RNA sequence: GCAAAAUGCUAGGGGUCCUGAUUGCGUAAUCUGUAAUCGGGUGAGAAACACCCUCUGAACCUGAUCUGGGUAAUGCCAGCGAAGGGAAGCUGUCGAGUUUGUUG
Number, nucleotide and partner (000 for none) at each position: 001g000002c000003a000004a000005a000006a000007u000008g090009c089010u088011a054012g053013g052014g051015g000016u048017c041018c040019u039020g038021a037022u036023u035024g034025c033026g032027u000028a000029a000030u000031c000032u026033g025034u024035a023036a022037u021038c020039g019040g018041g017042u000043g000044a000045g000046a000047a000048a016049c000050a000051c014052c013053c012054u011055c000056u000057g000058a000059a000060c085061c084062u083063g000064a000065u000066c079067u078068g077069g076070g000071u000072a000073a000074u000075g000076c069077c068078a067079g066080c000081g000082a000083a062084g061085g060086g000087a000088a010089g009090c008091u000092g000093u000094c000095g000096a000097g000098u000099u000100u000101g000102u000103u000104g000